[Rfam]
RNA sequence: UGCAAAAUAGGAUUUCAUGCGUCAAGUGUUCAGUGGAUGGGGAGUUGCCGCCGAAACGAAAAGUACGUCUUACGAUAUGAGGUCCGCACCCGUUGCG
Numbered sequence: 001u002g003c004a005a006a007a008u009a010g011g012a013u014u015u016c017a018u019g020c021g022u023c024a025a026g027u028g029u030u031c032a033g034u035g036g037a038u039g040g041g042g043a044g045u046u047g048c049c050g051c052c053g054a055a056a057c058g059a060a061a062a063g064u065a066c067g068u069c070u071u072a073c074g075a076u077a078u079g080a081g082g083u084c085c086g087c088a089c090c091c092g093u094u095g096c097g
Stems, first nucleotide, its partner, number of pairs: 001097005010085010020074003026057002029055003033051004040091003044087001061071003
A member of the RNA family "THF (Tetrahydrofolate) riboswitch aptamer" from Blautia hydrogenotrophica, 97 nucleotides long. The family's consensus secondary structure is taken from published work. Its family is annotated with tetrahydrofolate metabolic process in the Gene Ontology. It is one of the family's seed sequences.